[Rfam]
RNA sequence: GAUAGCCCCAGACCAUACCCAAAUCAAUAUUGGGCUCAACAGUACGAACAGCUCCAAGUGAGGCAUCGUAAAUGCCGUGGACUCGAGCCCAUUCAACGAAGGCGAUGACACCCAGACCAAGGAAAAUCAGGUGAUGACCAAGGAUAAAAGUGAGCUUCUUGGGAUCAUCCCA
Numbered sequence: 001g002a003u004a005g006c007c008c009c010a011g012a013c014c015a016u017a018c019c020c021a022a023a024u025c026a027a028u029a030u031u032g033g034g035c036u037c038a039a040c041a042g043u044a045c046g047a048a049c050a051g052c053u054c055c056a057a058g059u060g061a062g063g064c065a066u067c068g069u070a071a072a073u074g075c076c077g078u079g080g081a082c083u084c085g086a087g088c089c090c091a092u093u094c095a096a097c098g099a100a101g102g103c104g105a106u107g108a109c110a111c112c113c114a115g116a117c118c119a120a121g122g123a124a125a126a127u128c129a130g131g132u133g134a135u136g137a138c139c140a141a142g143g144a145u146a147a148a149a150g151u152g153a154g155c156u157u158c159u160u161g162g163g164a165u166c167a168u169c170c171c172a
Stems, first nucleotide, its partner, number of pairs: 130169006138163002141160002
This 172-nucleotide sequence from Synechococcus sp. MIT S9508 belongs to the Rfam family "Antisense RNA which regulates isiA expression".
A search with the family's covariance model found it, with a score of 61 bits.
NCBI's taxonomy places the organism under Bacteria, Bacillati, Cyanophyceae, Synechococcaceae, Synechococcus.